[Rfam]
RNA: Glycine riboswitch aptamer
Organism: Hoeflea marina
RNA sequence: GCUUCCCCGUUGGGAGAAACCGGAUCCGUCCGGUGCCGAAGGAGCAACCGCCCCGGAAACUCUCAGGCAAAAGGACCAGCAGGGAACA
Numbered sequence: 001g002c003u004u005c006c007c008c009g010u011u012g013g014g015a016g017a018a019a020c021c022g023g024a025u026c027c028g029u030c031c032g033g034u035g036c037c038g039a040a041g042g043a044g045c046a047a048c049c050g051c052c053c054c055g056g057a058a059a060c061u062c063u064c065a066g067g068c069a070a071a072a073g074g075a076c077c078a079g080c081a082g083g084g085a086a087c088a
Stems, first nucleotide, its partner, number of pairs: 006083002009080005020033004035068003038064002042062003048056002